[Rfam]
RNA sequence: GGCCGUAUCGGUUCGAUAGGGAUACUCAUCAAAUUACUAUGAAAACAGGGCGUAUUUCCUGUACAAUGGCGGGCCACAACUCCUAAGGAGCAGUUUGGCAACAGACCAGUGGAUUACAAAGGCAGGAGAACCCCAUAUCUUCUAAAAAAGGAGUUUUCAUCACAUCACCGGUGCGGCCUCUUUU
Numbered sequence: 001g002g003c004c005g006u007a008u009c010g011g012u013u014c015g016a017u018a019g020g021g022a023u024a025c026u027c028a029u030c031a032a033a034u035u036a037c038u039a040u041g042a043a044a045a046c047a048g049g050g051c052g053u054a055u056u057u058c059c060u061g062u063a064c065a066a067u068g069g070c071g072g073g074c075c076a077c078a079a080c081u082c083c084u085a086a087g088g089a090g091c092a093g094u095u096u097g098g099c100a101a102c103a104g105a106c107c108a109g110u111g112g113a114u115u116a117c118a119a120a121g122g123c124a125g126g127a128g129a130a131c132c133c134c135a136u137a138u139c140u141u142c143u144a145a146a147a148a149a150g151g152a153g154u155u156u157u158c159a160u161c162a163c164a165u166c167a168c169c170g171g172u173g174c175g176g177c178c179u180c181u182u183u184u
Base pairs, nucleotide, nucleotide: 055130056129057127058126059125060124061123062122064121067118068117074112075111076110077109079094080093081092097106099104
RNA: Bacteroidales-1 6S-Bacteroidales RNA suggested